[Rfam]
RNA sequence: GGAGAGGUGUCCGAGAGGCCGAAGGUGACAGACUCGAAAUCUGUUGUGGCGCAAGCCACCGGGAGUUCGAAUCUCCCCCUCUCCG
Numbered sequence: 001g002g003a004g005a006g007g008u009g010u011c012c013g014a015g016a017g018g019c020c021g022a023a024g025g026u027g028a029c030a031g032a033c034u035c036g037a038a039a040u041c042u043g044u045u046g047u048g049g050c051g052c053a054a055g056c057c058a059c060c061g062g063g064a065g066u067u068c069g070a071a072u073c074u075c076c077c078c079c080u081c082u083c084c085g
Stems, first nucleotide, its partner, number of pairs: 001084007011025002028044005061077005

This 85-nucleotide sequence from Malonomonas rubra belongs to the Rfam family "tRNA". Lineage of the source: Bacteria > Pseudomonadati > Desulfuromonadia > Malonomonas > Malonomonas rubra. Pairs were carried over by alignment from the consensus structure, which is taken from published work. By type it is a transfer RNA.